[Rfam]
RNA sequence: GGCUUUCUUCGCGCGGGAACUCGACCCGCGACUGCCCAGGUGACGGCCUGCGUGGACACCGUCCGCGAUGAGCUCGGGGUCGAGUCGGUCUGCCGUCAACUCCAGAUCGCCCCG
Number, nucleotide and partner (000 for none) at each position: 001g000002g000003c000004u000005u000006u000007c000008u000009u000010c000011g000012c000013g029014c028015g027016g026017g025018a000019a000020c000021u000022c000023g000024a000025c017026c016027c015028g014029c013030g000031a000032c000033u000034g000035c000036c000037c000038a000039g000040g000041u000042g000043a000044c000045g000046g000047c000048c000049u000050g000051c000052g000053u000054g000055g000056a000057c000058a000059c000060c000061g000062u000063c000064c000065g000066c000067g000068a000069u000070g000071a000072g000073c000074u000075c114076g113077g112078g111079g110080u000081c000082g000083a000084g000085u000086c109087g108088g000089u106090c105091u104092g103093c000094c000095g100096u000097c000098a000099a000100c095101u000102c000103c092104a091105g090106a089107u000108c087109g086110c079111c078112c077113c076114g075
RNA: ALIL pseudoknot
Organism: Streptomyces sp. NBRC 110611